[Rfam]
RNA sequence: GCGGACAAUCACUCACUCAAUCUGGGUGUGAUGUGCUUUAUACUAUUCAUCACAACCUCCUUAAGUGAGCGAAAGGCCGU
Dot-bracket structure: ........(..((((((.((...((.(((((((..............))))))).))...)).)))))).).........
This 80-nucleotide sequence from Cimex lectularius belongs to the Rfam family "mir-67 microRNA precursor family". NCBI's taxonomy places the organism under Eukaryota, Metazoa, Eumetabola, Prosorrhyncha, Cimex. On this family, see Cao et al., Insect Biochem Mol Biol 2008: "Identification of conserved microRNAs in Bombyx mori (silkworm) and regulation of fibroin L chain production by microRNAs in heterologous system". The family's consensus secondary structure was predicted with RNAalifold. The family has 33 seed sequences and 196 matches in Rfam 15.1. Its family is annotated with miRNA-mediated post-transcriptional gene silencing and RISC complex in the Gene Ontology.